[Rfam]
RNA sequence: GUGCUCCAUUAAAUAAUUUGCAAACUCAGUCAUAAAUAGCAAGACCAUGCUACUGAGAAUACCUUGGAUAAAUCAGAACACUGUAGAGAGAUAUUUUUAUAGAAUGCUGUUUGAUGUAUUCGUGAGUAUACAUUGAGGAGAGUCGAAAGUACUCAACUUUAAGAGGUAGUUGCAAUGCAUUAUGAGAAUAAGGUAUGACUAACUGUUCUCAAGCAUAAUUGAAACCUAGUUUUGAGUUGACUCUUAAGAGUUGAGGAGAAAACGGGGAGUAGUCCUAAAACCUAUUGUACCUGAAGAAUACAAGUAGUUUAGUAGGAAAUCUUCAACCAAGCUUGAGUGAGUGCAAGAAAGGCUUAUAGAAAUAUAAGUCAAAACAGACGUCAGUACAAGUACCAAAAGUGCAUUUCAGAAGGUUUCACAGUCAAUGAAAAUAUGUUCUGAAUGGUUUGGGAACGUUAUAGGUAUUAGUCCUAUAGAGGUUUAGGCAUUUUUAUGCAAUAUGAGAAGUCAAGGGUCGCUCCCGAAGGCUCAGACUCAUAUUCCUCUUAACCUAAUAAUUCGUAGUAAUGUUAUUGUCAGGCGAAAGCCUUGUAAAUUAUUUAUUUUUUA
Numbered sequence: 001g002u003g004c005u006c007c008a009u010u011a012a013a014u015a016a017u018u019u020g021c022a023a024a025c026u027c028a029g030u031c032a033u034a035a036a037u038a039g040c041a042a043g044a045c046c047a048u049g050c051u052a053c054u055g056a057g058a059a060u061a062c063c064u065u066g067g068a069u070a071a072a073u074c075a076g077a078a079c080a081c082u083g084u085a086g087a088g089a090g091a092u093a094u095u096u097u098u099a100u101a102g103a104a105u106g107c108u109g110u111u112u113g114a115u116g117u118a119u120u121c122g123u124g125a126g127u128a129u130a131c132a133u134u135g136a137g138g139a140g141a142g143u144c145g146a147a148a149g150u151a152c153u154c155a156a157c158u159u160u161a162a163g164a165g166g167u168a169g170u171u172g173c174a175a176u177g178c179a180u181u182a183u184g185a186g187a188a189u190a191a192g193g194u195a196u197g198a199c200u201a202a203c204u205g206u207u208c209u210c211a212a213g214c215a216u217a218a219u220u221g222a223a224a225c226c227u228a229g230u231u232u233u234g235a236g237u238u239g240a241c242u243c244u245u246a247a248g249a250g251u252u253g254a255g256g257a258g259a260a261a262a263c264g265g266g267g268a269g270u271a272g273u274c275c276u277a278a279a280a281c282c283u284a285u286u287g288u289a290c291c292u293g294a295a296g297a298a299u300a301c302a303a304g305u306a307g308u309u310u311a312g313u314a315g316g317a318a319a320u321c322u323u324c325a326a327c328c329a330a331g332c333u334u335g336a337g338u339g340a341g342u343g344c345a346a347g348a349a350a351g352g353c354u355u356a357u358a359g360a361a362a363u364a365u366a367a368g369u370c371a372a373a374a375c376a377g378a379c380g381u382c383a384g385u386a387c388a389a390g391u392a393c394c395a396a397a398a399g400u401g402c403a404u405u406u407c408a409g410a411a412g413g414u415u416u417c418a419c420a421g422u423c424a425a426u427g428a429a430a431a432u433a434u435g436u437u438c439u440g441a442a443u444g445g446u447u448u449g450g451g452a453a454c455g456u457u458a459u460a461g462g463u464a465u466u467a468g469u470c471c472u473a474u475a476g477a478g479g480u481u482u483a484g485g486c487a488u489u490u491u492u493a494u495g496c497a498a499u500a501u502g503a504g505a506a507g508u509c510a511a512g513g514g515u516c517g518c519u520c521c522c523g524a525a526g527g528c529u530c531a532g533a534c535u536c537a538u539a540u541u542c543c544u545c546u547u548a549a550c551c552u553a554a555u556a557a558u559u560c561g562u563a564g565u566a567a568u569g570u571u572a573u574u575g576u577c578a579g580g581c582g583a584a585a586g587c588c589u590u591g592u593a594a595a596u597u598a599u600u601u602a603u604u605u606u607u608u609a
Stems, first nucleotide, its partner, number of pairs: 008605001012601002016597001018595002025057005037052005060169001061167005074109003078105001081102009110137005116131004121126001140154004177590001181567001188559001193551001196383004203377005209336006225266003273317005282307004286302003292325004341404005353368005387455001393450005437533004461472002476545003479496001498541001504535001507529001509526001512522003578589004
This 609-nucleotide RNA sequence belongs to the Rfam family "ROOL RNA". Rfam describes the family as follows. Firmicutes, Fusobacteria (1 example), Tenericutes (1 example).